The family of this 61-nucleotide RNA sequence from Culicoidibacter larvae is "Fluoride riboswitch aptamer (crcB RNA motif)". The base pairs follow the family's consensus structure, which is taken from published work. The match comes from Rfam's covariance-model search (44 bits).

RNA sequence: UCAAAUAUAGGCGAUGGUGUUCGCCAUUAAAUAUCGAAAGAUUAAUGACACCUACACAAAC
Numbered sequence: 001u002c003a004a005a006u007a008u009a010g011g012c013g014a015u016g017g018u019g020u021u022c023g024c025c026a027u028u029a030a031a032u033a034u035c036g037a038a039a040g041a042u043u044a045a046u047g048a049c050a051c052c053u054a055c056a057c058a059a060a061c
Stems, first nucleotide, its partner, number of pairs: 010025004016052006033042003